[Rfam]
RNA sequence: UAUCGUGUGAGGAGUAUAAGUUCAGCAUAAGAGGAACCUUUGGGGUCGAAACACGGCAAGACUCCCAGAGGUUCUUCUUUUUC
Number, nucleotide and partner (000 for none) at each position: 001u000002a000003u000004c000005g000006u000007g000008u000009g000010a000011g000012g000013a000014g000015u000016a000017u000018a000019a000020g000021u000022u000023c000024a000025g000026c000027a000028u000029a000030a078031g077032a076033g075034g074035a000036a000037c071038c070039u000040u000041u000042g066043g065044g064045g062046u061047c060048g000049a000050a000051a000052c000053a000054c000055g000056g000057c000058a000059a000060g047061a046062c045063u000064c044065c043066c042067a000068g000069a000070g038071g037072u000073u000074c034075u033076u032077c031078u030079u000080u000081u000082u000083c000